[Rfam]
Rfam assigns this 73-nucleotide RNA from Branchiostoma belcheri to the family "mir-9/mir-79 microRNA precursor family". Rfam's curators put it in the seed alignment. A reference for the family is Lagos-Quintana et al. (2001), "Identification of novel genes coding for small expressed RNAs", Science.

RNA sequence: GUGCUGUCUUUGGUUAUCUAGCUGUAUGAGAGUCUUCUGUCACCAUAAAGCUAGGUAACCAAAACAACAACCA
Numbered sequence: 001g002u003g004c005u006g007u008c009u010u011u012g013g014u015u016a017u018c019u020a021g022c023u024g025u026a027u028g029a030g031a032g033u034c035u036u037c038u039g040u041c042a043c044c045a046u047a048a049a050g051c052u053a054g055g056u057a058a059c060c061a062a063a064a065c066a067a068c069a070a071c072c073a
Base pairs, nucleotide, nucleotide: 002069005066006065007064009063010062011061012060013059014058015057016056017055018054019053020052021051022050023049025047026046027045028044

Gene Ontology terms of the family: RISC complex and miRNA-mediated post-transcriptional gene silencing.